RNA sequence: GCUGGUGAAGUGAUGAGUUUUCUCAUGUCUCUUCUCUGAACUUUUUAUCUUUGGAGAUAAAUUAAUAUCUCUGAUCAUCAGA
Numbered sequence: 001g002c003u004g005g006u007g008a009a010g011u012g013a014u015g016a017g018u019u020u021u022c023u024c025a026u027g028u029c030u031c032u033u034c035u036c037u038g039a040a041c042u043u044u045u046u047a048u049c050u051u052u053g054g055a056g057a058u059a060a061a062u063u064a065a066u067a068u069c070u071c072u073g074a075u076c077a078u079c080a081g082a
Base pairs, nucleotide, nucleotide: 002081003080004079005078